[Rfam]
RNA sequence: GCAUGGAUGAAUACUGUGUUUUCUUUGUCGGUAGUUAACACAGCCAGACACCAUGCAAAAGUACAUUCUCCUCCUUUGAAAUGGUCUUAAUGGUAUGCUAAGAAUUGCCAUCAGCAUGCUAUUACUCAAGGGGAUCACAAGC
Dot-bracket structure: ((((((.......((((((..................)))))).......))))))...............((((((((........(((((((((((((..........).)))))))))))).)))))).))........